[Rfam]
RNA: Small nucleolar RNA SNORD34
RNA sequence: GUUGCCUAUGAUGAGUCUGCAGAAUUGUUGCCCACAUUGUUUGAUAUUAAUCCAUGAUAAGAAUCUACAUGAAUUCUGAGGUCAAU
Numbered sequence: 001g002u003u004g005c006c007u008a009u010g011a012u013g014a015g016u017c018u019g020c021a022g023a024a025u026u027g028u029u030g031c032c033c034a035c036a037u038u039g040u041u042u043g044a045u046a047u048u049a050a051u052c053c054a055u056g057a058u059a060a061g062a063a064u065c066u067a068c069a070u071g072a073a074u075u076c077u078g079a080g081g082u083c084a085a086u
Base pairs, nucleotide, nucleotide: 001086002085004083005081006080